[Rfam]
Notes: Shown here is an 81-nucleotide RNA from Scleropages formosus, a member of the family "mir-181 microRNA precursor family". The family has 157 seed sequences and 3,490 matches in Rfam 15.1. Its family is annotated with miRNA-mediated post-transcriptional gene silencing and RISC complex in the Gene Ontology.
RNA sequence: UGGCUGCGAUAAACAUUCAUUGCUGUCGGUGGGUUUGACGAAAGGGUAACUCACUGGCCAAUGAGUGCACACUGCGGUGCA
Numbered sequence: 001u002g003g004c005u006g007c008g009a010u011a012a013a014c015a016u017u018c019a020u021u022g023c024u025g026u027c028g029g030u031g032g033g034u035u036u037g038a039c040g041a042a043a044g045g046g047u048a049a050c051u052c053a054c055u056g057g058c059c060a061a062u063g064a065g066u067g068c069a070c071a072c073u074g075c076g077g078u079g080c081a
Stems, first nucleotide, its partner, number of pairs: 001081002004077005014067009025058007033050003
Taxonomically the source falls in Scleropages (Eukaryota, Bilateria, Actinopterygii, Osteoglossocephalai). The family's consensus secondary structure was predicted with PFOLD. On this family, see Ambros, Cell 2001: "microRNAs: tiny regulators with great potential". It scores 66 bits against the family's covariance model.